[Rfam]
A member of the RNA family "Plastid-psbA-1 3UTR RNA" from Musa balbisiana, 114 nucleotides long. About the family: Plastid psbA-1 is a non-coding RNA (ncRNA) present in plastids. It was identified in inverted repeat sequences in the 3 prime untranslate region (3UTR) of photosystem II quinone-binding protein (psbA). For this family Rfam cites "Retrograde signaling in plants: A critical review focusing on the GUN pathway and beyond" (Richter et al., Plant Commun, 2023). It is annotated as a cis-regulatory element.

RNA sequence: UCGAAGUGUCAUCUACAAAUGGAUAAGAUUUGGUCUUAGUGUAUACGAAUCGUGAAAAAGAAGUAGCAAUACCCCAUGUAUUGUUUUACUUUAGCAGACGGGGUUUGCUACUUU
Numbered sequence: 001u002c003g004a005a006g007u008g009u010c011a012u013c014u015a016c017a018a019a020u021g022g023a024u025a026a027g028a029u030u031u032g033g034u035c036u037u038a039g040u041g042u043a044u045a046c047g048a049a050u051c052g053u054g055a056a057a058a059a060g061a062a063g064u065a066g067c068a069a070u071a072c073c074c075c076a077u078g079u080a081u082u083g084u085u086u087u088a089c090u091u092u093a094g095c096a097g098a099c100g101g102g103g104u105u106u107g108c109u110a111c112u113u114u
Base pairs, nucleotide, nucleotide: 009022010021011020012019060114061113062112063111064110065109066108067107068106069105071104072103074101075100079096081094082093
The family's consensus secondary structure was predicted with LocARNA.